[Rfam]
Background: Shown here is a 62-nucleotide RNA from Microcebus murinus, a member of the family "Gag/pol translational readthrough site". The family's consensus secondary structure is taken from published work. NCBI's taxonomy places the organism under Eukaryota, Sarcopterygii, Theria, Euarchontoglires, Microcebus. A reference for the family is ten Dam et al. (1990), "RNA pseudoknots: translational frameshifting and readthrough on viral RNAs", Virus Genes. It scores 70 bits against the family's covariance model. The family's RNA type in Rfam is cis-regulatory element.
RNA sequence: UAGGGAAGACAGGGUUUGGUCCCCCUCCCUGAACCUAGGGUAACUUUGCAAGUGGAGGGGAA
Numbered sequence: 001u002a003g004g005g006a007a008g009a010c011a012g013g014g015u016u017u018g019g020u021c022c023c024c025c026u027c028c029c030u031g032a033a034c035c036u037a038g039g040g041u042a043a044c045u046u047u048g049c050a051a052g053u054g055g056a057g058g059g060g061a062a
Base pairs, nucleotide, nucleotide: 008041010039012036013035014034015033016031018029019028022060023059024058025057026056027055